RNA sequence: CAGACCUCCACUCUCAGGACAGUUCCGGUGCAGGCUGCCAGUGGAGGUGUCCUGAGAGUUAGGUCUGCACCGGAACUGUCCUGAGAGUGGAGGUCUG
Numbered sequence: 001c002a003g004a005c006c007u008c009c010a011c012u013c014u015c016a017g018g019a020c021a022g023u024u025c026c027g028g029u030g031c032a033g034g035c036u037g038c039c040a041g042u043g044g045a046g047g048u049g050u051c052c053u054g055a056g057a058g059u060u061a062g063g064u065c066u067g068c069a070c071c072g073g074a075a076c077u078g079u080c081c082u083g084a085g086a087g088u089g090g091a092g093g094u095c096u097g
Stems, first nucleotide, its partner, number of pairs: 001097008010088009020078003024074005030068006
mir-2040 microRNA precursor family: a 97-nucleotide sequence from Gymnodraco acuticeps.
The source organism's lineage runs through Eukaryota, Vertebrata, Actinopterygii, Eupercaria and Gymnodraco.
Gene Ontology terms of the family: miRNA-mediated post-transcriptional gene silencing and RISC complex.